RNA sequence: GAGUGUAUUGCUAUGGCAAGUCAUUGAUAUUGUUAAUAUCAAAGGCGUAAUGAAAAUAAUUUUAAUCUCUGAUCUUUUGAUUUUAUUAUCAUUAGCGCAUGAGAAACGUAAAUAUAUGAUAUAAUCAUUUUUUGCAGUUAUAGCCAUAGUAGUGCGACCCGAAAGAUGGUGAACUAUACUAGUGCAGGGUGAAGUCAGAAGAAAUUCUGAUGGAAGCUCGAAGCGGUCCUGACGUGCAAAUCGGUCGUCUGACAUUAGUAUAGGGGCGAAAGACUAAUCGAACCAUCUAGUAGCUGGUU
Dot-bracket structure: ....(((((((((((((..(((..((((((.....))))))..)))...((....))........((((....((..................)).....)))).(((((((.................)).))).))....)))))))))))))..((.(...((((((...((((((((((((.((((...(((((((....)))))))....))))...((((.((.((........))))))))..).))))))))))).((.......))......))))))......).))..
A member of the RNA family "Eukaryotic large subunit ribosomal RNA" from Strongyloides ratti, 299 nucleotides of a longer RNA. Rfam's curators put it in the seed alignment. The organism belongs to Strongyloides, within Eukaryota.